[Rfam]
RNA sequence: GGAUGCAUUACUGGGCAAAAACUCCAUUGGCAGUAGGCUUGUAAAUGGCUCGAAAAUAUAUAUAAAUGUAGGCAUUAUUUACGCUCACUGCCAAAGGAGAUUUGCCCGGCAAUUCUGCC
Numbered sequence: 001g002g003a004u005g006c007a008u009u010a011c012u013g014g015g016c017a018a019a020a021a022c023u024c025c026a027u028u029g030g031c032a033g034u035a036g037g038c039u040u041g042u043a044a045a046u047g048g049c050u051c052g053a054a055a056a057u058a059u060a061u062a063u064a065a066a067u068g069u070a071g072g073c074a075u076u077a078u079u080u081a082c083g084c085u086c087a088c089u090g091c092c093a094a095a096g097g098a099g100a101u102u103u104g105c106c107c108g109g110c111a112a113u114u115c116u117g118c119c
Stems, first nucleotide, its partner, number of pairs: 005115001007113003011109009022099004028093007036085001
Rfam assigns this 119-nucleotide RNA sequence from Dorcoceras hygrometricum to the family "mir-399 microRNA precursor family". For this family Rfam cites "Computational Identification of Plant MicroRNAs and Their Targets, Including a Stress-Induced miRNA" (Jones-Rhoades and Bartel, Mol Cell, 2004). From the family's description: mir-399 was identified in both Arabidopsis thaliana and Oryza sativa computationally and was later experimentally verified. mir-399 is thought to target mRNAs coding for a phosphatase transporter. The mature sequence is excised from the 3' arm of the hairpin.